A member of the RNA family "BsrC" from Lysinibacillus telephonicus, 88 nucleotides long. Rfam's curators write: The 301 nucleotide sequence from Kouji Nakamura has been trimmed to a highly conserved ~85 nucleotide long core to form this family. The source organism's lineage runs through Bacteria, Bacillota, Bacilli, Caryophanales and Lysinibacillus. By type it is a small RNA. A reference for the family is Saito et al. (2008), "Novel small RNA-encoding genes in the intergenic regions of Bacillus subtilis", Gene.

RNA sequence: UCUAACUUAAGCAACGCAAACCCUACCUACUUUUGCGUCCUUGCAAGCCCAUACUUGCGCCAGUGUGAAUAAGUAUCUUCAAAAACUU
Numbered sequence: 001u002c003u004a005a006c007u008u009a010a011g012c013a014a015c016g017c018a019a020a021c022c023c024u025a026c027c028u029a030c031u032u033u034u035g036c037g038u039c040c041u042u043g044c045a046a047g048c049c050c051a052u053a054c055u056u057g058c059g060c061c062a063g064u065g066u067g068a069a070u071a072a073g074u075a076u077c078u079u080c081a082a083a084a085a086c087u088u
Base pairs, nucleotide, nucleotide: 036067037066040063041062042059043058044057045056046055047054